Shown here is a 127-nucleotide RNA sequence from Dellaglioa algida, a member of the family "Streptococcus sRNA 10". On this family, see Tesorero et al., PLoS One 2013: "Novel regulatory small RNAs in Streptococcus pyogenes". By type it is a small RNA. The match comes from Rfam's covariance-model search (73 bits).

RNA sequence: CAUAGGGGAGUAACUAGCGGUUUAACCGCGGCAAUGUCACCAACAAGAAAGUUCUUUUUCUGGUAUUGCCUUAAAUAGUGAGACUUAUGUAUGUUCAAAGUUCCGCAACAUACAUAAGUCUUUUUUU
Numbered sequence: 001c002a003u004a005g006g007g008g009a010g011u012a013a014c015u016a017g018c019g020g021u022u023u024a025a026c027c028g029c030g031g032c033a034a035u036g037u038c039a040c041c042a043a044c045a046a047g048a049a050a051g052u053u054c055u056u057u058u059u060c061u062g063g064u065a066u067u068g069c070c071u072u073a074a075a076u077a078g079u080g081a082g083a084c085u086u087a088u089g090u091a092u093g094u095u096c097a098a099a100g101u102u103c104c105g106c107a108a109c110a111u112a113c114a115u116a117a118g119u120c121u122u123u124u125u126u127u
Base pairs, nucleotide, nucleotide: 005029007027008026011024012023013021014020030070031069032068033067034066035065036064037063038062039061042059043058046055047054048053080122081121082120083119084118085117086116087115088114089113090112091111092110093109094108095107